Record summary
Shown here is a 102-nucleotide RNA from Priestia koreensis, a member of the family "Purine riboswitch aptamer". The base pairs follow the family's consensus structure, which is taken from published work. NCBI's taxonomy places the organism under Bacteria, Bacillati, Bacilli, Caryophanales, Priestia.

RNA sequence: AUACCUAUCAAAUAUUUUUCUCGUAUAAUCUUGGAAAUAUGGUCCAAGAGUUUCUACCAAACUGCCGUAAAUAGUUGGACUACGAGGAGAGAACUGGUAUGU
Numbered sequence: 001a002u003a004c005c006u007a008u009c010a011a012a013u014a015u016u017u018u019u020c021u022c023g024u025a026u027a028a029u030c031u032u033g034g035a036a037a038u039a040u041g042g043u044c045c046a047a048g049a050g051u052u053u054c055u056a057c058c059a060a061a062c063u064g065c066c067g068u069a070a071a072u073a074g075u076u077g078g079a080c081u082a083c084g085a086g087g088a089g090a091g092a093a094c095u096g097g098u099a100u101g102u
Stems, first nucleotide, its partner, number of pairs: 018088008029049007058078001060076005